Small nucleolar RNA SNORA31: a 132-nucleotide RNA sequence from Theropithecus gelada. A search with the family's covariance model found it, with a score of 46 bits. About the family: ACA31 (SNORA31) belongs to the H/ACA class of snoRNAs which are thought to guide the sites of modification of uridines to pseudouridines. ACA31 is predicted to guide the pseudouridylation of U3713 in 28S rRNA and U218 in 18S rRNA. This family includes the mouse homologue snoMBI-161. Rfam links the family to the GO terms RNA processing and nucleolus.

RNA sequence: UCCAUCUGUUUGGCAGACCUGGAGCAGUUAGUGUCUGCUGCUAAGGAUUCCAUUACAGAUGUGAGAAAAAAAAGUGUUCUUCUGCUUUCUCUCUGUCUCAGUGGCAACGAAGAUUGAAUGGGGGAUAUGACA
Numbered sequence: 001u002c003c004a005u006c007u008g009u010u011u012g013g014c015a016g017a018c019c020u021g022g023a024g025c026a027g028u029u030a031g032u033g034u035c036u037g038c039u040g041c042u043a044a045g046g047a048u049u050c051c052a053u054u055a056c057a058g059a060u061g062u063g064a065g066a067a068a069a070a071a072a073a074g075u076g077u078u079c080u081u082c083u084g085c086u087u088u089c090u091c092u093c094u095g096u097c098u099c100a101g102u103g104g105c106a107a108c109g110a111a112g113a114u115u116g117a118a119u120g121g122g123g124g125a126u127a128u129g130a131c132a
Stems, first nucleotide, its partner, number of pairs: 002065001003061006011052002015049002018046002023039005077125006085116001088113003094106004